[Rfam]
A member of the RNA family "Small nucleolar RNA snoR77" from Corymbia citriodora, 132 nucleotides long.
The family has 5 seed sequences and 649 matches in Rfam 15.1.
A reference for the family is Marker et al. (2002), "Experimental RNomics: identification of 140 candidates for small non-messenger RNAs in the plant Arabidopsis thaliana", Curr Biol.
NCBI's taxonomy places the organism under Eukaryota, Viridiplantae, Mesangiospermae, Corymbia, Corymbia citriodora.
RNA sequence: AGGCAACCUCUCUAGUACGGCCCUGCGCCGAGAGAGGUGUUUAACCGCUCGGACAUCGACGCCUUUCGCUCUUCAGACUCGCUGAGACGGCUAUGUUGUCUCUGACGCUGGUCUAGUAAGCCCAAGUACAUG
Numbered sequence: 001a002g003g004c005a006a007c008c009u010c011u012c013u014a015g016u017a018c019g020g021c022c023c024u025g026c027g028c029c030g031a032g033a034g035a036g037g038u039g040u041u042u043a044a045c046c047g048c049u050c051g052g053a054c055a056u057c058g059a060c061g062c063c064u065u066u067c068g069c070u071c072u073u074c075a076g077a078c079u080c081g082c083u084g085a086g087a088c089g090g091c092u093a094u095g096u097u098g099u100c101u102c103u104g105a106c107g108c109u110g111g112u113c114u115a116g117u118a119a120g121c122c123c124a125a126g127u128a129c130a131u132g
Base pairs, nucleotide, nucleotide: 002041003040004039005038007037008036009035010034011033012032013031063126064125065124068121069120070119075114076113077112078111079110081108082107086100087099088098